Rfam assigns this 35-nucleotide RNA sequence from Arcicella aurantiaca to the family "DUF805b RNA". The base pairs follow the family's consensus structure, which is taken from published work. Rfam classes the family as a cis-regulatory element.
RNA sequence: ACUGGGUUAGCCGAAAACCAGUAUUAGAGUAGGCA
Numbered sequence: 001a002c003u004g005g006g007u008u009a010g011c012c013g014a015a016a017a018c019c020a021g022u023a024u025u026a027g028a029g030u031a032g033g034c035a
Stems, first nucleotide, its partner, number of pairs: 002021004010034003